[Rfam]
RNA sequence: AAGAAGCUACUUUGUGCGUAUUGUUAAUUAAGUUUUAACCUUUAAGCUGUAAUAGGGAGUUUUAUAUCGAAGCCGGAAUGUCAUGCCUCCAUUGCAGAGGACGACAGGAACGUUUCUGCAAACACCCACUUUGAGGAGUGGUGGUUUAAAACUUUCUUACUUGCAUACGGCAAGACGUAGCGAAAGC
Numbered sequence: 001a002a003g004a005a006g007c008u009a010c011u012u013u014g015u016g017c018g019u020a021u022u023g024u025u026a027a028u029u030a031a032g033u034u035u036u037a038a039c040c041u042u043u044a045a046g047c048u049g050u051a052a053u054a055g056g057g058a059g060u061u062u063u064a065u066a067u068c069g070a071a072g073c074c075g076g077a078a079u080g081u082c083a084u085g086c087c088u089c090c091a092u093u094g095c096a097g098a099g100g101a102c103g104a105c106a107g108g109a110a111c112g113u114u115u116c117u118g119c120a121a122a123c124a125c126c127c128a129c130u131u132u133g134a135g136g137a138g139u140g141g142u143g144g145u146u147u148a149a150a151a152c153u154u155u156c157u158u159a160c161u162u163g164c165a166u167a168c169g170g171c172a173a174g175a176c177g178u179a180g181c182g183a184a185a186g187c
Base pairs, nucleotide, nucleotide: 006181007180008179009178010177012173013172014171015170017169018168019167031153032152033151034150036148037147038146039144040143055127056126057125059123060122061121062120066117069116070115071114072113073112080105081104086100087099088098089097
Annotation
The record is a 187-nucleotide RNA from Bacillus subtilis, which matches "6S / SsrS RNA" in Rfam. Rfam 15.1 lists 5,006 matches to the family in 4,638 species. E. coli 6S RNA was the first non coding RNA to be sequenced, but its function was unknown until recently. It consists of 184 nucleotides that fold into an extended hairpin structure with a large single-stranded internal bulge. The 6S RNA specifically associates with RNA polymerase holoenzyme containing the sigma70 specificity factor. The sequence is in the family's curated seed alignment. Taxonomically the source falls in Bacillus subtilis subsp. subtilis (Bacteria, Caryophanales, Bacillus, Bacillus subtilis).